[Rfam]
RNA sequence: UUUGAGUCCACCAGGGAGGAUGUCAUCCCAGUGCCCAGACACUGGGAUCCAGAAAAAUUGAUUGUGCACUAUACAACAUUUUCGAUCAAAAGCUGGAUGCCAGUGUCAAGCACUGGCAUGACACCAUUUGUUGUGUUUAAC
Numbered sequence: 001u002u003u004g005a006g007u008c009c010a011c012c013a014g015g016g017a018g019g020a021u022g023u024c025a026u027c028c029c030a031g032u033g034c035c036c037a038g039a040c041a042c043u044g045g046g047a048u049c050c051a052g053a054a055a056a057a058u059u060g061a062u063u064g065u066g067c068a069c070u071a072u073a074c075a076a077c078a079u080u081u082u083c084g085a086u087c088a089a090a091a092g093c094u095g096g097a098u099g100c101c102a103g104u105g106u107c108a109a110g111c112a113c114u115g116g117c118a119u120g121a122c123a124c125c126a127u128u129u130g131u132u133g134u135g136u137u138u139a140a141c
Stems, first nucleotide, its partner, number of pairs: 012135002015132001021123006028116007038107008047098006
The record is a 141-nucleotide RNA from Trichonephila clavata, which matches "Wolbachia sRNA 46" in Rfam.
Rfam classes the family as a small RNA.
A search with the family's covariance model found it, with a score of 86 bits.
The organism belongs to Trichonephila, within Eukaryota.
The base pairs follow the family's consensus structure.
Rfam 15.1 lists 237 matches to the family in 34 species.